[Rfam]
RNA sequence: UCAGACUGGGCAUUUGUUAAAAAAAUUUCGCAUGGUGAAUCCCCCUGAGCGGAGGGGCGACUGGUGACGGUAUAAUCUCUGAUUAUCAAAACGAGAAUGACGCGGGUUUAGUGGCACCGGGCUGAACUCACCGGGAGGCACCCGGCACCAUGUGCAUGAUGAUACAGAUACGCGGCUUUAGCCCCUCUCCGGAGGGGUUUUCUUGUGGGC
Number, nucleotide and partner (000 for none) at each position: 001u000002c000003a000004g000005a000006c000007u000008g000009g000010g000011c000012a000013u000014u162015u161016g160017u000018u000019a000020a000021a000022a000023a000024a000025a000026u000027u000028u000029c000030g153031c152032a151033u150034g149035g148036u147037g146038a000039a000040u000041c000042c057043c056044c055045c054046u053047g000048a000049g000050c000051g000052g000053a046054g045055g044056g043057g042058c000059g000060a000061c000062u000063g000064g000065u093066g092067a000068c000069g000070g000071u000072a000073u000074a000075a000076u000077c000078u000079c000080u000081g000082a000083u000084u000085a000086u000087c000088a000089a000090a000091a000092c066093g065094a000095g000096a000097a000098u102099g000100a000101c000102g098103c000104g129105g128106g127107u126108u000109u124110a123111g122112u000113g000114g000115c000116a000117c000118c000119g000120g000121g000122c111123u110124g109125a000126a107127c106128u105129c104130a000131c145132c144133g143134g142135g141136a000137g000138g000139c000140a000141c135142c134143c133144g132145g131146c037147a036148c035149c034150a033151u032152g031153u030154g000155c000156a000157u000158g000159a000160u016161g015162a014163u000164a000165c000166a000167g000168a000169u000170a000171c209172g000173c207174g000175g000176c000177u000178u000179u000180a199181g198182c197183c196184c195185c194186u193187c000188u000189c000190c000191g000192g000193a186194g185195g184196g183197g182198u181199u180200u000201u000202c000203u000204u000205g000206u000207g173208g000209g171210c000